[Rfam]
Rfam assigns this 114-nucleotide sequence from Alterirhizorhabdus solaris to the family "Glycine riboswitch aptamer".
About the family: This family represents the bacterial glycine riboswitch.
The family is grouped with related families in Rfam's "Glycine riboswitch clan".
Gene Ontology term of the family: glycine biosynthetic process.
The organism belongs to Alterirhizorhabdus, within Bacteria.
RNA sequence: CGACACUCUGGAAAGCGUUCCCGCCCCGGCGGGAACCACCGAAGGGGUAAGCCGCAUCCCGCCUCCCGGCGACGAUCGGUGAAAGCUCUCAGGUCCCGUGACAGAGGGGGCAGC
Number, nucleotide and partner (000 for none) at each position: 001c000002g000003a000004c108005a000006c106007u105008c104009u103010g102011g000012a000013a000014a000015g000016c000017g036018u035019u034020c033021c000022c000023g000024c000025c000026c000027c000028g000029g000030c000031g000032g000033g020034a019035a018036c017037c000038a094039c093040c092041g090042a089043a000044g000045g088046g087047g086048u000049a000050a000051g080052c079053c078054g077055c000056a000057u000058c000059c000060c000061g000062c000063c000064u000065c000066c000067c000068g000069g000070c000071g000072a000073c000074g000075a000076u000077c054078g053079g052080u051081g000082a000083a000084a000085g000086c047087u046088c045089u042090c041091a000092g040093g039094u038095c000096c000097c000098g000099u000100g000101a000102c010103a009104g008105a007106g006107g000108g004109g000110g000111c000112a000113g000114c000